[Rfam]
RNA: Selenocysteine insertion sequence 4
Organism: Alkaliphilus serpentinus
RNA sequence: GGUACCUGUACACGUUGCGGUGCAACGAUGAACAAAGA
Number, nucleotide and partner (000 for none) at each position: 001g000002g000003u000004a000005c000006c030007u000008g000009u000010a000011c000012a000013c027014g026015u025016u024017g023018c022019g000020g000021u000022g018023c017024a016025a015026c014027g013028a000029u000030g006031a000032a000033c000034a000035a000036a000037g000038a000